[Rfam]
RNA sequence: GCACCAUUAGUGUAAUGGAUAUCACGUAAGAUUCCGGUUCUUAAAAUGGGGGUUCGAUUCCCUCAUGGUGCG
Numbered sequence: 001g002c003a004c005c006a007u008u009a010g011u012g013u014a015a016u017g018g019a020u021a022u023c024a025c026g027u028a029a030g031a032u033u034c035c036g037g038u039u040c041u042u043a044a045a046a047u048g049g050g051g052g053u054u055c056g057a058u059u060c061c062c063u064c065a066u067g068g069u070g071c072g
Base pairs, nucleotide, nucleotide: 001071002070003069004068005067006066007065010025011024012023027043028042029041030040031039048064049063050062051061052060